[Rfam]
RNA sequence: GGGUAUGUGCCCUUGGACUACAUCGUGGAAGCCAGCACCAUGCAGUCCAUGGGCAUAUACACUUGCCUCAA
Numbered sequence: 001g002g003g004u005a006u007g008u009g010c011c012c013u014u015g016g017a018c019u020a021c022a023u024c025g026u027g028g029a030a031g032c033c034a035g036c037a038c039c040a041u042g043c044a045g046u047c048c049a050u051g052g053g054c055a056u057a058u059a060c061a062c063u064u065g066c067c068u069c070a071a
Stems, first nucleotide, its partner, number of pairs: 004059009014049006021042003025038003